[Rfam]
RNA sequence: CCCUAGCCCGGAUGGAAGCGGCAUCCUUUUGUGCAAUGCAAUGGAACAAAAGAUACAGCGGACAGGCGGAACAGCU
Numbered sequence: 001c002c003c004u005a006g007c008c009c010g011g012a013u014g015g016a017a018g019c020g021g022c023a024u025c026c027u028u029u030u031g032u033g034c035a036a037u038g039c040a041a042u043g044g045a046a047c048a049a050a051a052g053a054u055a056c057a058g059c060g061g062a063c064a065g066g067c068g069g070a071a072c073a074g075c076u
Stems, first nucleotide, its partner, number of pairs: 009068002013064002018059002023054003029049004034044001036042001
Shown here is a 76-nucleotide RNA sequence from Flavobacterium noncentrifugens, a member of the family "Flavo-1 RNA". The organism belongs to Flavobacterium, within Bacteria. The base pairs follow the family's consensus structure, which is taken from published work. The match comes from Rfam's covariance-model search (57 bits).